[Rfam]
This 81-nucleotide RNA from Sphaeramia orbicularis belongs to the Rfam family "mir-363 microRNA precursor family". Its Rfam clan is "mir-19 clan". For this family Rfam cites "A mammalian microRNA expression atlas based on small RNA library sequencing" (Landgraf et al., Cell, 2007).
RNA sequence: GCUGUUUUCGGGUGGAUCACUUUGCAAUUUCAAGACUUGACAUAAUGAGAGAAAUUGCACAGUAUCCAUCUGCAAUCCGCC
Number, nucleotide and partner (000 for none) at each position: 001g000002c000003u000004g000005u000006u000007u000008u000009c072010g071011g070012g069013u068014g067015g066016a065017u064018c000019a063020c062021u000022u000023u059024g058025c057026a056027a055028u054029u053030u052031c051032a000033a000034g000035a000036c000037u000038u000039g000040a000041c000042a000043u000044a000045a000046u000047g000048a000049g000050a000051g031052a030053a029054a028055u027056u026057g025058c024059a023060c000061a000062g020063u019064a017065u016066c015067c014068a013069u012070c011071u010072g009073c000074a000075a000076u000077c000078c000079g000080c000081c000